[Rfam]
This 73-nucleotide sequence from Pseudochryseolinea flava belongs to the Rfam family "tRNA".

RNA sequence: GCCUCCUUAGCUCAGCUGGUAGAGCAACUGACUUGUAAUCAGUAGGUCGCUGGUUCGAUUCCGGCAGGGGGCU
Numbered sequence: 001g002c003c004u005c006c007u008u009a010g011c012u013c014a015g016c017u018g019g020u021a022g023a024g025c026a027a028c029u030g031a032c033u034u035g036u037a038a039u040c041a042g043u044a045g046g047u048c049g050c051u052g053g054u055u056c057g058a059u060u061c062c063g064g065c066a067g068g069g070g071g072c073u
Stems, first nucleotide, its partner, number of pairs: 001072007010025004027043005049065005